[Rfam]
The record is a 119-nucleotide RNA sequence from Phyllobacterium myrsinacearum, which matches "Alphaproteobacterial ar14" in Rfam. The match comes from Rfam's covariance-model search (78 bits). The family's RNA type in Rfam is small RNA. Rfam's curators write: Smr14C2 was renamed NfeR1 (Nodule Formation Efficiency RNA) highly expressed in salt stress and during the symbiotic interaction on legume roots. The organism belongs to Phyllobacterium, within Bacteria. A reference for the family is Robledo et al. (2017), "A conserved alpha-proteobacterial small RNA contributes to osmoadaptation and symbiotic efficiency of rhizobia on legume roots", Environ Microbiol. Rfam links the family to the GO term biological process involved in symbiotic interaction.
RNA sequence: AAUUUUCGACAGCGUCACCUCCUCCCGGCCCUGUCGAAACGGUUGGCCUCUUCUCCUCCCAGAAGGCCUUCCAAAACCAACGAAACCCACCGCACCUCCUCCCGCGGUGGGUUUUGUUG
Numbered sequence: 001a002a003u004u005u006u007c008g009a010c011a012g013c014g015u016c017a018c019c020u021c022c023u024c025c026c027g028g029c030c031c032u033g034u035c036g037a038a039a040c041g042g043u044u045g046g047c048c049u050c051u052u053c054u055c056c057u058c059c060c061a062g063a064a065g066g067c068c069u070u071c072c073a074a075a076a077c078c079a080a081c082g083a084a085a086c087c088c089a090c091c092g093c094a095c096c097u098c099c100u101c102c103c104g105c106g107g108u109g110g111g112u113u114u115u116g117u118u119g
Stems, first nucleotide, its partner, number of pairs: 007036006014029002041072002045068004083114011